[Rfam]
RNA: tRNA
RNA sequence: GGGGAUGUAGCUCAUAUGGUAGAGCGCUCGCUUUGCAUGCGAGAGGCACAGGGUUCGAUUCCCUGCAUCUCCA
Numbered sequence: 001g002g003g004g005a006u007g008u009a010g011c012u013c014a015u016a017u018g019g020u021a022g023a024g025c026g027c028u029c030g031c032u033u034u035g036c037a038u039g040c041g042a043g044a045g046g047c048a049c050a051g052g053g054u055u056c057g058a059u060u061c062c063c064u065g066c067a068u069c070u071c072c073a
Base pairs, nucleotide, nucleotide: 001072002071003070004069005068006067007066010025011024012023013022027043028042029041030040031039049065050064051063052062053061
Dot-bracket structure: (((((((..((((........)))).(((((.......))))).....(((((.......)))))))))))).